[Rfam]
RNA sequence: UACCGGCGAAUGAUCACGCCGCAGUCUGGCAGUCGGCUCAUCCCCCGCCGCUCCAGACCGGACGAAGGCCUCAUCCCCCUCAGGGCCUUUGUCCAGACAUCGAACCGCUGCGGCCGAUCCCCCUCCCGGCCGUGGCGGUUUUGC
Numbered sequence: 001u002a003c004c005g006g007c008g009a010a011u012g013a014u015c016a017c018g019c020c021g022c023a024g025u026c027u028g029g030c031a032g033u034c035g036g037c038u039c040a041u042c043c044c045c046c047g048c049c050g051c052u053c054c055a056g057a058c059c060g061g062a063c064g065a066a067g068g069c070c071u072c073a074u075c076c077c078c079c080u081c082a083g084g085g086c087c088u089u090u091g092u093c094c095a096g097a098c099a100u101c102g103a104a105c106c107g108c109u110g111c112g113g114c115c116g117a118u119c120c121c122c123c124u125c126c127c128g129g130c131c132g133u134g135g136c137g138g139u140u141u142u143g144c
Stems, first nucleotide, its partner, number of pairs: 025057005035049003060094011102140001105138012
Dot-bracket structure: ........................(((((.....(((.........)))...)))))..(((((((((((.............))))))))))).......(..((((((((((((..........)))))))))))).)....
Alphaproteobacterial sRNA ar7: a 144-nucleotide sequence from Pseudorhizobium pelagicum. The family's RNA type in Rfam is small RNA. Pairs were carried over by alignment from the consensus structure. The match comes from Rfam's covariance-model search (86 bits).